[Rfam]
RNA: MIR2118 microRNA precursor family
RNA sequence: GCCAGGAAGAGGAAGCAAGAGAAUAUCUAAGAGCGGUGGGAAUGGGAACAUGGAGGAAAGCAUGAAAACUAUUGGAUACAGACAUUUGUCUGUGUUUUCCUGAUGCCUCCCAUUCCUACAGUUCUUAGGUGCUCCUUCCUCUUCCUUUGGCCU
Numbered sequence: 001g002c003c004a005g006g007a008a009g010a011g012g013a014a015g016c017a018a019g020a021g022a023a024u025a026u027c028u029a030a031g032a033g034c035g036g037u038g039g040g041a042a043u044g045g046g047a048a049c050a051u052g053g054a055g056g057a058a059a060g061c062a063u064g065a066a067a068a069c070u071a072u073u074g075g076a077u078a079c080a081g082a083c084a085u086u087u088g089u090c091u092g093u094g095u096u097u098u099c100c101u102g103a104u105g106c107c108u109c110c111c112a113u114u115c116c117u118a119c120a121g122u123u124c125u126u127a128g129g130u131g132c133u134c135c136u137u138c139c140u141c142u143u144c145c146u147u148u149g150g151c152c153u
Stems, first nucleotide, its partner, number of pairs: 009144005015138001017136001021134002026129009037118011049105003053101001055100007